Rfam assigns this 92-nucleotide RNA from an Olavius algarvensis spirochete endosymbiont to the family "TPP riboswitch aptamer (THI element)". Pairs were carried over by alignment from the consensus structure, which is taken from published work. It scores 58 bits against the family's covariance model.

[Rfam]
RNA sequence: GGAGAGCUUCCGGGGUGGCCUGUACAGCCUGAGAUUAUACCCGUGAACCUGAUCCGGAUUAUACCGGCGUAGGAACGGGCUCAAACCCCUGA
Numbered sequence: 001g002g003a004g005a006g007c008u009u010c011c012g013g014g015g016u017g018g019c020c021u022g023u024a025c026a027g028c029c030u031g032a033g034a035u036u037a038u039a040c041c042c043g044u045g046a047a048c049c050u051g052a053u054c055c056g057g058a059u060u061a062u063a064c065c066g067g068c069g070u071a072g073g074a075a076c077g078g079g080c081u082c083a084a085a086c087c088c089c090u091g092a
Base pairs, nucleotide, nucleotide: 006080007079008078009077011043012042013041014040016037017029018028019027048073049072050071051070054067055066056065057064
Gene Ontology term of the family: thiamine pyrophosphate binding.